[Rfam]
RNA sequence: CUUGGCGGAGCCGAGCCACAGGGGGUGGCCGUCGGCGCGGCCCAGGCCGUAGGUGGCCAGCAGGGCCUGGGCUUC
Numbered sequence: 001c002u003u004g005g006c007g008g009a010g011c012c013g014a015g016c017c018a019c020a021g022g023g024g025g026u027g028g029c030c031g032u033c034g035g036c037g038c039g040g041c042c043c044a045g046g047c048c049g050u051a052g053g054u055g056g057c058c059a060g061c062a063g064g065g066c067c068u069g070g071g072c073u074u075c
Stems, first nucleotide, its partner, number of pairs: 014026001016024002032070002038065001043060001045058001047056003
The record is a 75-nucleotide sequence from Streptomyces sporangiiformans, which matches "ASpks TB sRNA" in Rfam. The organism belongs to Streptomyces, within Bacteria. The base pairs follow the family's consensus structure, which is taken from published work.